[Rfam]
RNA sequence: AAUCGUCUACAAUAAUAAAGUCGUAUAAGUUCGGUAAUAUGGACCGUUCGUUUCUACCAGGCAACCGUAAAAUGCCAGGCUACGAGCUAUUGUAAAAUUU
Dot-bracket structure: .................(..(((((...(..((((.......))))..)........(.((((.........)))).)..)))))..)............

The record is a 100-nucleotide RNA from Listeria innocua, which matches "Purine riboswitch aptamer" in Rfam. About the family: Riboswitches are metabolite binding domains within certain messenger RNAs that serve as precision sensors for their corresponding targets. Allosteric rearrangement of mRNA structure is mediated by ligand binding, and this results in modulation of gene expression. A class of riboswitches that selectively recognises guanine and becomes saturated at concentrations as low as 5 nM. In Bacillus subtilis, this mRNA motif is located on at least five separate transcriptional units that together encode 17 genes that are mostly involved in purine transport and purine nucleotide biosynthesis. Gene Ontology term of the family: purine nucleobase biosynthetic process.